[Rfam]
RNA: Acido-Lenti-1 RNA
RNA sequence: CAUCCCGCUUUACGGGAUGCUGAUAUAUGACGCCCUUUCAGGGCU
Numbered sequence: 001c002a003u004c005c006c007g008c009u010u011u012a013c014g015g016g017a018u019g020c021u022g023a024u025a026u027a028u029g030a031c032g033c034c035c036u037u038u039c040a041g042g043g044c045u
Stems, first nucleotide, its partner, number of pairs: 001019007032044005